[Rfam]
RNA sequence: AAGCCCCUCCUCCCCAGCCACAGCGCCUGCUCACCCUGCCACGUCAAAGGAGGCAGAAGGGGAGCCGCGCGGAGAGGGGACAG
Numbered sequence: 001a002a003g004c005c006c007c008u009c010c011u012c013c014c015c016a017g018c019c020a021c022a023g024c025g026c027c028u029g030c031u032c033a034c035c036c037u038g039c040c041a042c043g044u045c046a047a048a049g050g051a052g053g054c055a056g057a058a059g060g061g062g063a064g065c066c067g068c069g070c071g072g073a074g075a076g077g078g079g080a081c082a083g
Stems, first nucleotide, its partner, number of pairs: 003081001004079006013072002023070004029066001030064003034061002036056005042050001
Source information
The record is an 83-nucleotide RNA sequence from Pipistrellus kuhlii, which matches "mir-3154 microRNA precursor family" in Rfam. It scores 74 bits against the family's covariance model. The family has 6 seed sequences and 134 matches in Rfam 15.1. Taxonomically the source falls in Pipistrellus (Eukaryota, Metazoa, Yangochiroptera, Vespertilionidae).